[Rfam]
RNA sequence: GGCCUCCUGGUGUUUACCACAGGUUGUGUUCUUACUGUGUAGAAAGAGGAGGCAAAGUAAAUCUACCCCAUACACACCUGGGCCCAGGCCCUGUGCUUGAUCUCUACUGUGAAUGGGGAAGUGUGA
Number, nucleotide and partner (000 for none) at each position: 001g000002g053003c052004c051005u050006c049007c048008u047009g000010g000011u000012g000013u000014u000015u000016a000017c000018c000019a000020c037021a036022g035023g000024u000025u000026g031027u000028g000029u000030u000031c026032u000033u000034a000035c022036u021037g020038u000039g000040u000041a000042g000043a000044a000045a000046g000047a008048g007049g006050a005051g004052g003053c002054a000055a000056a000057g000058u000059a000060a000061a000062u000063c000064u000065a000066c118067c117068c116069c115070a114071u113072a000073c000074a000075c000076a000077c000078c000079u000080g104081g103082g102083c000084c000085c099086a098087g097088g096089c095090c000091c000092u000093g000094u000095g089096c088097u087098u086099g085100a000101u000102c082103u081104c080105u000106a000107c000108u000109g000110u000111g000112a000113a071114u070115g069116g068117g067118g066119a000120a000121g000122u000123g000124u000125g000126a000
Small nucleolar RNA SNORA51: a 126-nucleotide RNA sequence from Castor canadensis. From the family's description: ACA51 is a member of the H/ACA class of snoRNA that guide the sites of modification of uridines to pseudouridines. NCBI's taxonomy places the organism under Eukaryota, Chordata, Dipnotetrapodomorpha, Castorimorpha, Castor. The family has 9 seed sequences and 2,121 matches in Rfam 15.1.